[Rfam]
A member of the RNA family "MIR8565 microRNA precursor family" from Amborella trichopoda, 154 nucleotides long. The base pairs follow the family's consensus structure, which was predicted with RNAalifold. Its family is annotated with RISC complex and miRNA-mediated post-transcriptional gene silencing in the Gene Ontology. A search with the family's covariance model found it, with a score of 143 bits.
RNA sequence: CCCACAUCCAUGUAUGUAGAACUCCAAAGGAUCACCAUUAAAUUUAGUACAGAUCUCUAGAAAAGUUAUCAUAUGGGUAUGGGAUUUGACUUUUUUAGAUAUCUGUGCCAAAUUUAAUGGUGAUCCUCUGGGGUCCUACACACCUGGGUGUGGG
Dot-bracket structure: .(((((((((.((.(((((.((((((.(.(((.((((((((((((.((((((((.((((((((((((((((((....)))))....))))))))))))).)))))))).)))))))))))).))).).)))))).))))).)).))))))))).
Taxonomically the source falls in Amborella (Eukaryota, Streptophyta, Euphyllophyta, Magnoliopsida).